[Rfam]
RNA sequence: ACUUGUGGCACCUUAGAGACUAACCAAUUUAAAUUUAAAUUUAAAUUGGUUAGUCUCUAAGGUGCCACAAGU
Numbered sequence: 001a002c003u004u005g006u007g008g009c010a011c012c013u014u015a016g017a018g019a020c021u022a023a024c025c026a027a028u029u030u031a032a033a034u035u036u037a038a039a040u041u042u043a044a045a046u047u048g049g050u051u052a053g054u055c056u057c058u059a060a061g062g063u064g065c066c067a068c069a070a071g072u
Stems, first nucleotide, its partner, number of pairs: 002071019023050007
RNA: mir-153 microRNA precursor family
Organism: Chelonia mydas